[Rfam]
RNA sequence: AAUUUUGUUUGUAGGAACAAAAGGAAGCAUACCUAUUCUACACUCGAUAAGUACCAAUAUGCAAUGGUA
Numbered sequence: 001a002a003u004u005u006u007g008u009u010u011g012u013a014g015g016a017a018c019a020a021a022a023g024g025a026a027g028c029a030u031a032c033c034u035a036u037u038c039u040a041c042a043c044u045c046g047a048u049a050a051g052u053a054c055c056a057a058u059a060u061g062c063a064a065u066g067g068u069a
Stems, first nucleotide, its partner, number of pairs: 003022002006019005044067002051060003
Shown here is a 69-nucleotide sequence from Ziziphus jujuba, a member of the family "Plastid-clpP 5UTR RNA".
The organism belongs to Ziziphus, within Eukaryota.
From the family's description: Plastid clpP is a non-coding RNA (ncRNA) recognised in plastids.
The family's consensus secondary structure was predicted with LocARNA.